RNA: Small nucleolar RNA snoR138
Organism: Zea mays
RNA sequence: ACUGCUUCUCGAAUAACCGAUUGCAGAUACUAUCUGUUCGCAGGCGGUUCAGACAGGGGCAUAGAACAAAUCUGAAUCACCACGAGGGAAGGGUUAUUUCCAUUAAUCCUUUCUCGUUAGGAUUCGUAUAGAUUUACAUAUAU
Numbered sequence: 001a002c003u004g005c006u007u008c009u010c011g012a013a014u015a016a017c018c019g020a021u022u023g024c025a026g027a028u029a030c031u032a033u034c035u036g037u038u039c040g041c042a043g044g045c046g047g048u049u050c051a052g053a054c055a056g057g058g059g060c061a062u063a064g065a066a067c068a069a070a071u072c073u074g075a076a077u078c079a080c081c082a083c084g085a086g087g088g089a090a091g092g093g094u095u096a097u098u099u100c101c102a103u104u105a106a107u108c109c110u111u112u113c114u115c116g117u118u119a120g121g122a123u124u125c126g127u128a129u130a131g132a133u134u135u136a137c138a139u140a141u142a143u
Base pairs, nucleotide, nucleotide: 003061004060005059006058007057009056015049016048017047018046019045021043022042024040026038073136074135075134076133077132078131080121081120083116084115085114087113090110091109092108095106